[Rfam]
RNA: c-di-AMP riboswitch aptamer (ydaO/yuaA leader)
Organism: Aphanothece sacrum
RNA sequence: AAAUUUCUUUUGUGAGAAUCAAGACUGGAGCGGGGGAACCAAUAGUGGGGCUUAUUUCUAAGGAUUUUACCUUAGAGAAGGACAUCUCUCAGUCCUAGCCCGUCAGCUAACCUCGUCGGCAUUGAGAGGAGACUGA
Dot-bracket structure: ...(((....................)))((((((....((....))(((.....((((((((......))))))))..((((........))))...))).........))))))....................